[Rfam]
The family of this 144-nucleotide RNA sequence from Hymenochirus boettgeri is "Small nucleolar RNA SNORA79".
Rfam links the family to the GO terms nucleolus and RNA processing.
It scores 81 bits against the family's covariance model.
About the family: ACA65 (SNORA79) is a member of the H/ACA class of snoRNAs that guide the sites of modification of uridines to pseudouridines. This snoRNA was identified by computational screening and its expression in mouse experimentally verified by Northern blot and primer extension analysis.
The literature on the family includes a 2006 paper in RNA by Schattner et al., "A computational screen for mammalian pseudouridylation guide H/ACA RNAs".
The organism belongs to Hymenochirus, within Eukaryota.
RNA sequence: UGACAGCUGUUCCUCUCUCUGUCACUAGUAAUGGGCUUAGAGAUUUUAGGCUGUCAGAGAGAAAUUUGGCUGUUUCACUCGGAGGCUUGCUCUGGCAAACUGGUUGCCUGUUCUUGCCUUUGAAUUUUGCGGGGUCAUACAAAC
Numbered sequence: 001u002g003a004c005a006g007c008u009g010u011u012c013c014u015c016u017c018u019c020u021g022u023c024a025c026u027a028g029u030a031a032u033g034g035g036c037u038u039a040g041a042g043a044u045u046u047u048a049g050g051c052u053g054u055c056a057g058a059g060a061g062a063a064a065u066u067u068g069g070c071u072g073u074u075u076c077a078c079u080c081g082g083a084g085g086c087u088u089g090c091u092c093u094g095g096c097a098a099a100c101u102g103g104u105u106g107c108c109u110g111u112u113c114u115u116g117c118c119u120u121u122g123a124a125u126u127u128u129g130c131g132g133g134g135u136c137a138u139a140c141a142a143a144c
Stems, first nucleotide, its partner, number of pairs: 001056008014043005021036003068136003071132001079123008089113001094108004